A member of the RNA family "Guanidine-I riboswitch aptamer" from Alkaliphilus peptidifermentans, 99 nucleotides long. Its family is annotated with regulation of gene expression in the Gene Ontology. The pairing is the family consensus, mapped onto this sequence. Lineage of the source: Bacteria > Bacillati > Bacillota > Natronincolaceae > Alkaliphilus peptidifermentans. This family represents a conserved RNA structure found upstream of the ykkC and yxkD genes in Bacillus subtilis and related genes in other bacteria. The function of this family is unclear although it has been suggested that it may function to switch on efflux pumps and detoxification systems in response to harmful environmental molecules. A search with the family's covariance model found it, with a score of 64 bits.
RNA sequence: UGAAAGUGUACCUAGGGUUCCGUCUUUCUUUUUAGAGCUGGACCGAGCGGUACAAGCAUAUUACAUAUGCUACACCGAGGGGAUAAAAGCCCGGGCGGA
Number, nucleotide and partner (000 for none) at each position: 001u000002g000003a000004a000005a000006g000007u054008g053009u052010a051011c050012c049013u000014a000015g044016g043017g000018u000019u000020c041021c040022g038023u036024c035025u034026u000027u000028c000029u000030u000031u000032u000033u000034a025035g024036a023037g000038c022039u000040g021041g020042a000043c016044c015045g000046a000047g000048c000049g012050g011051u010052a009053c008054a007055a071056g070057c069058a068059u067060a066061u000062u000063a000064c000065a000066u060067a059068u058069g057070c056071u055072a000073c094074a000075c097076c000077g000078a000079g000080g092081g091082g090083a000084u000085a000086a000087a000088a000089g000090c082091c081092c080093g000094g073095g000096c000097g075098g000099a000